[Rfam]
Shown here is a 72-nucleotide RNA from Flavobacterium psychrophilum, a member of the family "Flavo-1 RNA".
RNA sequence: GUUUAGCCCCGAUAGUAGUGGAAAUCCUCGCCAUUUUUCUUGGCGAGAUUGCAACGGAUAGCGGGAAAUAGC
Numbered sequence: 001g002u003u004u005a006g007c008c009c010c011g012a013u014a015g016u017a018g019u020g021g022a023a024a025u026c027c028u029c030g031c032c033a034u035u036u037u038u039c040u041u042g043g044c045g046a047g048a049u050u051g052c053a054a055c056g057g058a059u060a061g062c063g064g065g066a067a068a069u070a071g072c
Stems, first nucleotide, its partner, number of pairs: 009064003013060002018055002023050004029045005

Taxonomically the source falls in Flavobacterium psychrophilum (Bacteria, Pseudomonadati, Bacteroidota, Flavobacterium). The sequence is in the family's curated seed alignment.